[Rfam]
RNA sequence: GGUUCAUUGAUGACUCCCCUCUAAGCAUUCCUUGGAAUGCUGAAGAAAAUGAGUGUCAAGUCACUACCAACUCACUCAUGGAACUGAGGUCC
Number, nucleotide and partner (000 for none) at each position: 001g092002g091003u000004u089005c088006a000007u000008u000009g000010a000011u000012g000013a000014c000015u000016c000017c000018c000019c000020u000021c000022u000023a000024a000025g000026c055027a054028u053029u052030c051031c000032u047033u046034g000035g000036a000037a000038u000039g000040c000041u000042g000043a000044a000045g000046a033047a032048a000049a000050u000051g030052a029053g028054u027055g026056u000057c000058a000059a000060g000061u000062c000063a000064c000065u000066a000067c000068c000069a000070a000071c000072u000073c000074a000075c000076u000077c000078a000079u000080g000081g000082a000083a000084c000085u000086g000087a000088g005089g004090u000091c002092c001